[Rfam]
RNA sequence: AAGCGUUGGUGGCACAACUUCCCAUUCAAGGGCGGUUAAGUCACACACAUAAAUACCCAUGUGAAAGUGCCAAAACCCGCCCUAAGAAGCGGGUUUUUUAUC
Numbered sequence: 001a002a003g004c005g006u007u008g009g010u011g012g013c014a015c016a017a018c019u020u021c022c023c024a025u026u027c028a029a030g031g032g033c034g035g036u037u038a039a040g041u042c043a044c045a046c047a048c049a050u051a052a053a054u055a056c057c058c059a060u061g062u063g064a065a066a067g068u069g070c071c072a073a074a075a076c077c078c079g080c081c082c083u084a085a086g087a088a089g090c091g092g093g094u095u096u097u098u099u100a101u102c
Base pairs, nucleotide, nucleotide: 009044010043011042012041016037017036018035019034021032022031023030074095075094076093077092078091079090080089
Record summary
Tryptophan operon leader: a 102-nucleotide RNA from Xenorhabdus szentirmaii. The match comes from Rfam's covariance-model search (46 bits). Rfam classes the family as a cis-regulatory leader. The family's consensus secondary structure is taken from published work. A reference for the family is Kolter and Yanofsky (1982), "Attenuation in amino acid biosynthetic operons", Annu Rev Genet. From the family's description: At least 6 amino acid operons are known to be regulated by attenuation. In each a leader sequence of 150-200 bp is found upstream of the first gene in the operon. This leader sequence can assume two different secondary structures known as the terminator and the anti-terminator structure. In each case the leader also codes for very short peptide sequence that is rich in the end product amino acid of the operon. The terminator structure is recognised as a termination signal for RNA polymerase and the operon is not transcribed. This structure forms when the cell has an excess of the regulatory amino acid and ribosome movement over the leader transcript is not impeded. When there is a deficiency of the charged tRNA of the regulatory amino acid the ribosome translating the leader peptide stalls and the antiterminator structure can form. This allows RNA polymerase to transcribe the operon. In the Rfam alignment the consensus structure is of the terminator structure.